[Rfam]
RNA sequence: UUGUGCUAGGUGGGGAGCUAGCGGUGCCCUUUUCCCGAAAUCCGCUUUACGCGGGGCUGAACUCCCGCCCAAGGGCCUUAUACUUGGAUAACCUGAACCAUUUUGAUCGGACACCUCGCAACAGACGGUCGCGAACCUCGUCAGAUCCGGAAGGAAGCAGCGAUAAGUGAUGCAGUCUGUGUCGUGGAUUGAUCCCGGUCUGCAUAAUGGUCCGGGUUUCCCAAAAAAGGUUCGAAGGUGGGUGCACAA
Numbered sequence: 001u002u003g004u005g006c007u008a009g010g011u012g013g014g015g016a017g018c019u020a021g022c023g024g025u026g027c028c029c030u031u032u033u034c035c036c037g038a039a040a041u042c043c044g045c046u047u048u049a050c051g052c053g054g055g056g057c058u059g060a061a062c063u064c065c066c067g068c069c070c071a072a073g074g075g076c077c078u079u080a081u082a083c084u085u086g087g088a089u090a091a092c093c094u095g096a097a098c099c100a101u102u103u104u105g106a107u108c109g110g111a112c113a114c115c116u117c118g119c120a121a122c123a124g125a126c127g128g129u130c131g132c133g134a135a136c137c138u139c140g141u142c143a144g145a146u147c148c149g150g151a152a153g154g155a156a157g158c159a160g161c162g163a164u165a166a167g168u169g170a171u172g173c174a175g176u177c178u179g180u181g182u183c184g185u186g187g188a189u190u191g192a193u194c195c196c197g198g199u200c201u202g203c204a205u206a207a208u209g210g211u212c213c214g215g216g217u218u219u220c221c222c223a224a225a226a227a228a229g230g231u232u233c234g235a236a237g238g239u240g241g242g243u244g245c246a247c248a249a
Stems, first nucleotide, its partner, number of pairs: 001249006009058003012030004017025003034055004064242006073233005079228001081226001084223001086221003093216001094214002097211003102207002105200006111193001114187002117184002119181002122179005128171005138163004146155003
Shown here is a 249-nucleotide RNA from Olavius sp. associated proteobacterium Delta 1, a member of the family "Bacterial large signal recognition particle RNA". For this family Rfam cites "SRPDB: Signal Recognition Particle Database" (Rosenblad et al., Nucleic Acids Res, 2003). A search with the family's covariance model found it, with a score of 136 bits. Taxonomically the source falls in Deltaproteobacteria (Bacteria, delta/epsilon subdivisions). The base pairs follow the family's consensus structure, which is taken from published work. Rfam's curators write: The signal recognition particle (SRP) is a universally conserved ribonucleoprotein involved in the co-translational targeting of proteins to membranes.